Shown here is an 84-nucleotide sequence from Marchantia polymorpha, a member of the family "Small nucleolar RNA Z162". It is annotated as a C/D-box small nucleolar RNA. Gene Ontology terms of the family: nucleolus and RNA processing.
[Rfam]
RNA sequence: UGCAGCACUAUGAGGAAAAUCUUAAUGUAUUUUCGAGGACACGUCCAAUGAAUCGAAAUACCUCCUACUCAUUCUGAGUGCUGC
Numbered sequence: 001u002g003c004a005g006c007a008c009u010a011u012g013a014g015g016a017a018a019a020u021c022u023u024a025a026u027g028u029a030u031u032u033u034c035g036a037g038g039a040c041a042c043g044u045c046c047a048a049u050g051a052a053u054c055g056a057a058a059u060a061c062c063u064c065c066u067a068c069u070c071a072u073u074c075u076g077a078g079u080g081c082u083g084c
Base pairs, nucleotide, nucleotide: 004082005081006080007079008078010072011071012070013069014068038045039044
NCBI's taxonomy places the organism under Eukaryota, Viridiplantae, Streptophytina, Marchantia, Marchantia polymorpha.
The family's consensus secondary structure was predicted with PFOLD.